RNA sequence: UUGAAGGACAUUAUUGAGGAGUCGAAUGACGAGGUAACGCUCAGAAAGGCUCCCCCUGCGUCGAAUAGCGCGCUAUUUAGUAAGGAAAAGCGUGUUAUAAGCUCGGCUAAUAGGCGUGAGAAUUUACCGUAACAGCUCGACUAACGAAAGCCUACCCGAUGGGGUGGUGUAAAUCAUGGUGCUUGGGUUGAACAA
Numbered sequence: 001u002u003g004a005a006g007g008a009c010a011u012u013a014u015u016g017a018g019g020a021g022u023c024g025a026a027u028g029a030c031g032a033g034g035u036a037a038c039g040c041u042c043a044g045a046a047a048g049g050c051u052c053c054c055c056c057u058g059c060g061u062c063g064a065a066u067a068g069c070g071c072g073c074u075a076u077u078u079a080g081u082a083a084g085g086a087a088a089a090g091c092g093u094g095u096u097a098u099a100a101g102c103u104c105g106g107c108u109a110a111u112a113g114g115c116g117u118g119a120g121a122a123u124u125u126a127c128c129g130u131a132a133c134a135g136c137u138c139g140a141c142u143a144a145c146g147a148a149a150g151c152c153u154a155c156c157c158g159a160u161g162g163g164g165u166g167g168u169g170u171a172a173a174u175c176a177u178g179g180u181g182c183u184u185g186g187g188u189u190g191a192a193c194a195a
Stems, first nucleotide, its partner, number of pairs: 018053006033041002054187003061106004065098010076087003113183005122174006128146003134142002150168003154165004

The family of this 195-nucleotide RNA sequence from Peribacillus asahii is "Group II catalytic intron D1-D4-5". A search with the family's covariance model found it, with a score of 115 bits. Rfam links the family to the GO term Group II intron splicing. The base pairs follow the family's consensus structure. NCBI's taxonomy places the organism under Bacteria, Bacilli, Caryophanales, Bacillaceae, Peribacillus.